[Rfam]
The family of this 82-nucleotide RNA from Rattus norvegicus is "mir-298 microRNA precursor family". Pairs were carried over by alignment from the consensus structure, which was predicted with RNAalifold. The organism belongs to Rattus, within Eukaryota. Rfam links the family to the GO terms miRNA-mediated post-transcriptional gene silencing and RISC complex.

RNA sequence: CCAGGCCUUCGGCAGAGGAGGGCUGUUCUUCCCUUGGGUUUUAUGACUGGGAGGAACUAGCCUUCUCUCUGCUUAGGAGUGG
Numbered sequence: 001c002c003a004g005g006c007c008u009u010c011g012g013c014a015g016a017g018g019a020g021g022g023c024u025g026u027u028c029u030u031c032c033c034u035u036g037g038g039u040u041u042u043a044u045g046a047c048u049g050g051g052a053g054g055a056a057c058u059a060g061c062c063u064u065c066u067c068u069c070u071g072c073u074u075a076g077g078a079g080u081g082g
Stems, first nucleotide, its partner, number of pairs: 001082003006077003011073006018067003021062003025057005032051002036047001